[Rfam]
RNA sequence: UCGACUGUACUCGAACAGGAUCACUUCUAUAGUAGAUCCGCUUGUUCACCUGCACAGCGACAGACAACACCUUAAGUCGUGACGAUGAGUUGUACAUCCAGCCAUCCCUUGAAGGGAGGCUCCCUGUGCGAUUGGUUUCAUACCAACUUCCUCAGGGCAGCUUUGAUGAUACCGGGGCAGCUGGCGAAAGCCAGUUGCUCCAAUGGCGAGGAUGAUUCUGAACGACA
Numbered sequence: 001u002c003g004a005c006u007g008u009a010c011u012c013g014a015a016c017a018g019g020a021u022c023a024c025u026u027c028u029a030u031a032g033u034a035g036a037u038c039c040g041c042u043u044g045u046u047c048a049c050c051u052g053c054a055c056a057g058c059g060a061c062a063g064a065c066a067a068c069a070c071c072u073u074a075a076g077u078c079g080u081g082a083c084g085a086u087g088a089g090u091u092g093u094a095c096a097u098c099c100a101g102c103c104a105u106c107c108c109u110u111g112a113a114g115g116g117a118g119g120c121u122c123c124c125u126g127u128g129c130g131a132u133u134g135g136u137u138u139c140a141u142a143c144c145a146a147c148u149u150c151c152u153c154a155g156g157g158c159a160g161c162u163u164u165g166a167u168g169a170u171a172c173c174g175g176g177g178c179a180g181c182u183g184g185c186g187a188a189a190g191c192c193a194g195u196u197g198c199u200c201c202a203a204u205g206g207c208g209a210g211g212a213u214g215a216u217u218c219u220g221a222a223c224g225a226c227a
Stems, first nucleotide, its partner, number of pairs: 002040002006035001008034004017028004045069001051063001076226005095214005101207005110171002118162003123157003178197004183192001

The family of this 227-nucleotide sequence from Toxoplasma gondii is "ACEA small nucleolar RNA U3".
The organism belongs to Toxoplasma gondii, within Eukaryota.
About the family: Small nucleolar RNAs (snoRNAs) are involved in the processing and modification of rRNA in the nucleolus. There are two main classes of snoRNAs: the box C/D class, and the box H/ACA class. U3 snoRNA is a member of the box C/D class. Indeed, the box C/D element is a subset of the six short sequence elements found in all U3 snoRNAs, namely boxes A, A', B, C, C', and D. The U3 snoRNA secondary structure is characterised by a small 5' domain (with boxes A and A'), and a larger 3' domain (with boxes B, C, C', and D), the two domains being linked by a single-stranded hinge.
Rfam's curators put it in the seed alignment.
Its Rfam clan is "U3 clan".
It is annotated as a C/D-box small nucleolar RNA.
Gene Ontology terms of the family: RNA processing and nucleolus.